[Rfam]
RNA sequence: GGGGAGCAUCUAGAUGCCGAGAUGUUGCCUGAUACAACCUUCCUAAAGAAAAAACUGUUGUUUCCUACUUGUAGUGCUUGAGCAAGUCUGCAAGUCUCAA
Number, nucleotide and partner (000 for none) at each position: 001g030002g029003g028004g000005a026006g025007c024008a023009u022010c021011u020012a000013g000014a000015u000016g000017c000018c000019g000020a011021g010022a009023u008024g007025u006026u005027g000028c003029c002030u001031g000032a000033u000034a000035c000036a000037a000038c000039c000040u000041u000042c000043c000044u000045a000046a000047a000048g000049a000050a000051a000052a000053a000054a000055c000056u000057g000058u000059u000060g000061u000062u000063u000064c000065c000066u000067a095068c094069u093070u092071g091072u090073a089074g088075u000076g087077c086078u085079u000080g000081a000082g000083c000084a000085a078086g077087u076088c074089u073090g072091c071092a070093a069094g068095u067096c000097u000098c000099a000100a000

The family of this 100-nucleotide sequence from Trifolium medium is "Small nucleolar RNA snoR104". A reference for the family is Marker et al. (2002), "Experimental RNomics: identification of 140 candidates for small non-messenger RNAs in the plant Arabidopsis thaliana", Curr Biol. It is annotated as an H/ACA-box small nucleolar RNA. Gene Ontology terms of the family: RNA processing and nucleolus. It scores 80 bits against the family's covariance model. Lineage of the source: Eukaryota > Embryophyta > Gunneridae > Papilionoideae > Trifolium.